[Rfam]
RNA sequence: CAAGUUUCAUAAGCGCCAGAGCUUGUACCUGCGCGGGGAUUGGUUAUAGCCAUGAUAAGGAUAACCAAACGGCAGAACGCAAGUUGACGAGGUAGAGGUGUUCGAUUAUUCGGCGGGGACCUCUCGGUCUUGCACCAACCGUAAGCGGAUCACGGAAAAGGAAUGGGCGACCGUUCCCACAACGUAUUCGCGGGUGCUAA
Numbered sequence: 001c002a003a004g005u006u007u008c009a010u011a012a013g014c015g016c017c018a019g020a021g022c023u024u025g026u027a028c029c030u031g032c033g034c035g036g037g038g039a040u041u042g043g044u045u046a047u048a049g050c051c052a053u054g055a056u057a058a059g060g061a062u063a064a065c066c067a068a069a070c071g072g073c074a075g076a077a078c079g080c081a082a083g084u085u086g087a088c089g090a091g092g093u094a095g096a097g098g099u100g101u102u103c104g105a106u107u108a109u110u111c112g113g114c115g116g117g118g119a120c121c122u123c124u125c126g127g128u129c130u131u132g133c134a135c136c137a138a139c140c141g142u143a144a145g146c147g148g149a150u151c152a153c154g155g156a157a158a159a160g161g162a163a164u165g166g167g168c169g170a171c172c173g174u175u176c177c178c179a180c181a182a183c184g185u186a187u188u189c190g191c192g193g194g195u196g197c198u199a200a
Stems, first nucleotide, its partner, number of pairs: 020085007094124005102113004125141004146190005160177007

About this RNA
This 200-nucleotide RNA sequence from Paenibacillus solani belongs to the Rfam family "glmS glucosamine-6-phosphate activated ribozyme aptamer". About the family: This entry contains a glucosamine-6-phosphate activated ribozyme that is found in the mRNA for GlmS. GlmS is an enzyme that uses fructose-6-phosphate and glutamine to generate glucosamine-6-phosphate. The ribozyme catalyses self cleavage of the glmS mRNA that is thought to regulate GlmS activity. It scores 72 bits against the family's covariance model. The source organism's lineage runs through Bacteria, Bacillati, Bacillota, Caryophanales and Paenibacillus. Rfam classes the family as a riboswitch. The family's consensus secondary structure is taken from published work.